[Rfam]
RNA: 7SK RNA
RNA sequence: GGAUGUGAGGGCGAUCUGGCUGCGACAUCUGUCACCCCAUUGAUCGCUAGGGUUGAUUCGGCUGAUCUGGCUGGCUAGGCGGGUGUCCCCUUCCUCCCUCACCGCUCCAUGUGCGUCCCUCCCGAAGCUCCGCGCUCGGUGGAAGAGGACCUGCCCUCCGCGGACGAGCAUCAUCGUCGGUAUACCAGUAGCUGCGCUCCCCUGCUAGAACCUCCAAACAAGCUCAAGGCCCAUUUGUAGGAGAAACGUAGGGAAGUCAAGCUCCAAGCUUCAGACACAUCCGAAUGAGGCACUGCACGUGGCAGUCUGCCUUCGUUU
Numbered sequence: 001g002g003a004u005g006u007g008a009g010g011g012c013g014a015u016c017u018g019g020c021u022g023c024g025a026c027a028u029c030u031g032u033c034a035c036c037c038c039a040u041u042g043a044u045c046g047c048u049a050g051g052g053u054u055g056a057u058u059c060g061g062c063u064g065a066u067c068u069g070g071c072u073g074g075c076u077a078g079g080c081g082g083g084u085g086u087c088c089c090c091u092u093c094c095u096c097c098c099u100c101a102c103c104g105c106u107c108c109a110u111g112u113g114c115g116u117c118c119c120u121c122c123c124g125a126a127g128c129u130c131c132g133c134g135c136u137c138g139g140u141g142g143a144a145g146a147g148g149a150c151c152u153g154c155c156c157u158c159c160g161c162g163g164a165c166g167a168g169c170a171u172c173a174u175c176g177u178c179g180g181u182a183u184a185c186c187a188g189u190a191g192c193u194g195c196g197c198u199c200c201c202c203u204g205c206u207a208g209a210a211c212c213u214c215c216a217a218a219c220a221a222g223c224u225c226a227a228g229g230c231c232c233a234u235u236u237g238u239a240g241g242a243g244a245a246a247c248g249u250a251g252g253g254a255a256g257u258c259a260a261g262c263u264c265c266a267a268g269c270u271u272c273a274g275a276c277a278c279a280u281c282c283g284a285a286u287g288a289g290g291c292a293c294u295g296c297a298c299g300u301g302g303c304a305g306u307c308u309g310c311c312u313u314c315g316u317u318u
Stems, first nucleotide, its partner, number of pairs: 001108003005102007013093002018090002024087010035074002037070003042067004046062003117168001118166001120164002122139004127135002140160003147157002191262003197256002200253006212243004218238005283318003287313005292306005